[Rfam]
RNA sequence: ACGUUAUCGGAAGCAGUGCCUUCCAUAAUUA
Numbered sequence: 001a002c003g004u005u006a007u008c009g010g011a012a013g014c015a016g017u018g019c020c021u022u023c024c025a026u027a028a029u030u031a
Stems, first nucleotide, its partner, number of pairs: 003029005009024005014018001
The record is a 31-nucleotide RNA from Oryzias latipes, which matches "Iron response element II" in Rfam. About the family: IRE, TFRC, SLC40A1, SDHB, SLC11A2, CDC42BPA, ACO2, ALAS2_H.SAPIENS, CDC14A, EPAS1, ALAS2, qoxD, Hao1, NDUFS1, transferrin, Aconitate. The base pairs follow the family's consensus structure, which is taken from published work. Rfam 15.1 lists 5,197 matches to the family in 722 species. For this family Rfam cites "A cytosolic protein binds to structural elements within the iron regulatory region of the transferrin receptor mRNA" (Koeller et al., Proc Natl Acad Sci U S A, 1989).